[Rfam]
The record is a 103-nucleotide RNA, which matches "GP20-a RNA" in Rfam. The base pairs follow the family's consensus structure, which is taken from published work.
RNA sequence: CUAAGUCGAACAUAACGACAGUUAAACAAAUGUACGUUCUGACCGCACACUGUAAUGCGGAGAUACAAAUAACAGAUAUAAAAGAAUGUGAAGGAGAGUUGCA
Numbered sequence: 001c002u003a004a005g006u007c008g009a010a011c012a013u014a015a016c017g018a019c020a021g022u023u024a025a026a027c028a029a030a031u032g033u034a035c036g037u038u039c040u041g042a043c044c045g046c047a048c049a050c051u052g053u054a055a056u057g058c059g060g061a062g063a064u065a066c067a068a069a070u071a072a073c074a075g076a077u078a079u080a081a082a083a084g085a086a087u088g089u090g091a092a093g094g095a096g097a098g099u100u101g102c103a
Base pairs, nucleotide, nucleotide: 005019006018007017008016010033011032012031013030035088036087037086038085039084043060044059045058046057047056